Ascomycota telomerase RNA: a 169-nucleotide part of an RNA from Hirsutella rhossiliensis. Rfam classes the family as a non-coding RNA gene. Taxonomically the source falls in Hirsutella (Eukaryota, Pezizomycotina, leotiomyceta, Sordariomycetes). The match comes from Rfam's covariance-model search (307 bits). The literature on the family includes a 2013 paper in Nucleic Acids Res by Qi et al., "The common ancestral core of vertebrate and fungal telomerase RNAs". Its Rfam clan is "Telomerase clan".

[Rfam]
RNA sequence: UCCCUGUCGGGAUCCCUUUGGGUGUCGAUGGGCCCUCGGCGCUCUUUCGAAAGGAAGAGGUCGGGACGAAAGCGCGGUUUUUGUGGAUGUCUUUUGUUCGCGCGUCAACGCCCUCCAUACUCGCUGUUUCGAAAGCAUCGCGGAGAGGAAACAAAAACCAGUCCUUGUU
Numbered sequence: 001u002c003c004c005u006g007u008c009g010g011g012a013u014c015c016c017u018u019u020g021g022g023u024g025u026c027g028a029u030g031g032g033c034c035c036u037c038g039g040c041g042c043u044c045u046u047u048c049g050a051a052a053g054g055a056a057g058a059g060g061u062c063g064g065g066a067c068g069a070a071a072g073c074g075c076g077g078u079u080u081u082u083g084u085g086g087a088u089g090u091c092u093u094u095u096g097u098u099c100g101c102g103c104g105u106c107a108a109c110g111c112c113c114u115c116c117a118u119a120c121u122c123g124c125u126g127u128u129u130c131g132a133a134a135g136c137a138u139c140g141c142g143g144a145g146a147g148g149a150a151a152c153a154a155a156a157a158c159c160a161g162u163c164c165u166u167g168u169u
Stems, first nucleotide, its partner, number of pairs: 006029004015022002034068001035065005042059003048053001086163003089158002092156006111148002113145004120140001123139001125137005